This 96-nucleotide RNA from Rodentibacter trehalosifermentans belongs to the Rfam family "Aggregatibacter sRNA 22". A search with the family's covariance model found it, with a score of 59 bits. The family's RNA type in Rfam is small RNA. The literature on the family includes a 2017 paper in DNA Res by Oogai et al., "Small RNA repertoires and their intraspecies variation in Aggregatibacter actinomycetemcomitans".

RNA sequence: GUGCGGUCACAAAAAACAAUGUUUUUUGAGCGUUAGCUAUGCUAACAACCCCGAUAGGGGGAGCAAGUGAGCUGGCGAAUUUGCGAAUAAUAUCAA
Numbered sequence: 001g002u003g004c005g006g007u008c009a010c011a012a013a014a015a016a017c018a019a020u021g022u023u024u025u026u027u028g029a030g031c032g033u034u035a036g037c038u039a040u041g042c043u044a045a046c047a048a049c050c051c052c053g054a055u056a057g058g059g060g061g062a063g064c065a066a067g068u069g070a071g072c073u074g075g076c077g078a079a080u081u082u083g084c085g086a087a088u089a090a091u092a093u094c095a096a
Stems, first nucleotide, its partner, number of pairs: 010028008032046006049059003063084006071076001